This 76-nucleotide RNA from Drosophila virilis belongs to the Rfam family "mir-957 microRNA precursor family". It is one of the family's seed sequences. The family's consensus secondary structure was predicted with RNAalifold.

[Rfam]
RNA sequence: UGGUUCUUAGUUUUAGACGUGUUUUGGUGUGCUUGAAGUUUUGUUCCGAUUGAAACCGUCCAAAACUGAGGCCGAU
Numbered sequence: 001u002g003g004u005u006c007u008u009a010g011u012u013u014u015a016g017a018c019g020u021g022u023u024u025u026g027g028u029g030u031g032c033u034u035g036a037a038g039u040u041u042u043g044u045u046c047c048g049a050u051u052g053a054a055a056c057c058g059u060c061c062a063a064a065a066c067u068g069a070g071g072c073c074g075a076u
Stems, first nucleotide, its partner, number of pairs: 005071001007069008016060004021056008